Background:
This 129-nucleotide RNA from Streptomyces populi belongs to the Rfam family "Streptomyces RNA 5676". Identified by deep sequencing of transcriptome at the end of exponential growth phase. Appears longer on northern blot than sequencing transcript. This indicates processing step. Streptomyces specific. The source organism's lineage runs through Bacteria, Actinomycetota, Actinomycetes, Streptomycetaceae and Streptomyces. It is annotated as a small RNA. The base pairs follow the family's consensus structure.

RNA sequence: GGAUCAGGGAUACACCCGCCCACAGGGGACUGCGGGCCGCACCGGACCGAGGCUUCUCCGGCUCCGCCCUGGCCGUGCCCUAGCGCACACACCCGGAGCUUGCGGCUCCGGUUCUCCUCACCGAUCGGA
Numbered sequence: 001g002g003a004u005c006a007g008g009g010a011u012a013c014a015c016c017c018g019c020c021c022a023c024a025g026g027g028g029a030c031u032g033c034g035g036g037c038c039g040c041a042c043c044g045g046a047c048c049g050a051g052g053c054u055u056c057u058c059c060g061g062c063u064c065c066g067c068c069c070u071g072g073c074c075g076u077g078c079c080c081u082a083g084c085g086c087a088c089a090c091a092c093c094c095g096g097a098g099c100u101u102g103c104g105g106c107u108c109c110g111g112u113u114c115u116c117c118u119c120a121c122c123g124a125u126c127g128g129a
Base pairs, nucleotide, nucleotide: 004120006118007117009116010115016039018037019036020035021034023032024031025030042072043071044070045069048066049065051063052062053061075088076087077086078085093111094110095109096108097107098106099105121128122127